Shown here is a 149-nucleotide sequence from Pseudomonas fluorescens, a member of the family "PrrF RNA".
For this family Rfam cites "Identification of tandem duplicate regulatory small RNAs in Pseudomonas aeruginosa involved in iron homeostasis" (Wilderman et al., Proc Natl Acad Sci U S A, 2004).
Rfam's curators put it in the seed alignment.
Gene Ontology term of the family: sRNA-mediated gene silencing.
PrrF RNA is a small RNA involved in iron homeostasis and is found exclusively in Pseudomonas species.
The family's RNA type in Rfam is small RNA.

RNA sequence: UUGACUUGGUAAUGAGAAUCGCUAUGAUUAUCACAACUGAUCGCGAGAUCAGUCGAUAUUCUGAAAAGCCCUUGGUUCGGACUCUCAGAUUAUCUCCUCAUCAGGCUAAUCACGGUUAUUUGACCCGGUUUUUACCGGGUCUUUUUUUG
Numbered sequence: 001u002u003g004a005c006u007u008g009g010u011a012a013u014g015a016g017a018a019u020c021g022c023u024a025u026g027a028u029u030a031u032c033a034c035a036a037c038u039g040a041u042c043g044c045g046a047g048a049u050c051a052g053u054c055g056a057u058a059u060u061c062u063g064a065a066a067a068g069c070c071c072u073u074g075g076u077u078c079g080g081a082c083u084c085u086c087a088g089a090u091u092a093u094c095u096c097c098u099c100a101u102c103a104g105g106c107u108a109a110u111c112a113c114g115g116u117u118a119u120u121u122g123a124c125c126c127g128g129u130u131u132u133u134a135c136c137g138g139g140u141c142u143u144u145u146u147u148u149g
Base pairs, nucleotide, nucleotide: 034055036053037052038051039050040049041048042047061088062087063086065085067083068082070079096105097104098103122141123140124139125138126137127136128135129134